Shown here is a 95-nucleotide sequence from a Pyrinomonadaceae bacterium, a member of the family "Selenocysteine transfer RNA". Pairs were carried over by alignment from the consensus structure, which is taken from published work. The literature on the family includes a 2000 paper in FEBS Lett by Mizutani and Goto, "Eukaryotic selenocysteine tRNA has the 9/4 secondary structure". A search with the family's covariance model found it, with a score of 65 bits.
Nucleotides: 095
Base pairs, nucleotide, nucleotide: 001095002094003093004092005091006090007089011026012025013024014023015022016021028044029043030042031041032040048069049068050067051066072086073085074084075083
Number, partner (000 for none) and nucleotide at each position: 001095g002094g003093a004092g005091g006090c007089g008000c009000a010000a011026c012025u013024u014023g015022u016021c017000c018000g019000g020000u021016g022015a023014u024013g025012g026011g027000c028044g029043c030042g031041g032040u033000c034000u035000u036000c037000a038000a039000a040032a041031c042030c043029g044028u045000u046000u047000g048069u049068g050067a051066g052000a053000u054000u055000g056000u057000g058000a059000g060000a061000g062000c063000a064000a065000g066051c067050u068049c069048a070000g071000g072086u073085g074084g075083g076000u077000u078000c079000g080000a081000c082000u083075c084074c085073c086072a087000c088000a089007c090006g091005c092004c093003u094002c095001c